[Rfam]
RNA sequence: UCUUGGCACCCUUCAUUCCACCGGAAUCUGUCUAUACAGAAACCAGAUUUCAGUGAAAUGAAGCCUGUCAGAGA
Number, nucleotide and partner (000 for none) at each position: 001u000002c000003u000004u000005g000006g000007c000008a000009c000010c000011c063012u062013u061014c060015a059016u058017u000018c000019c055020a054021c053022c000023g051024g050025a049026a048027u000028c046029u045030g044031u000032c000033u000034a000035u000036a000037c000038a000039g000040a000041a000042a000043c000044c030045a029046g028047a000048u026049u025050u024051c023052a000053g021054u020055g019056a000057a000058a016059u015060g014061a013062a012063g011064c000065c000066u000067g000068u000069c000070a000071g000072a000073g000074a000
Rfam assigns this 74-nucleotide RNA sequence from Columba livia to the family "mir-205 microRNA precursor family". On this family, see Murchison et al., Genome Res 2008: "Conservation of small RNA pathways in platypus".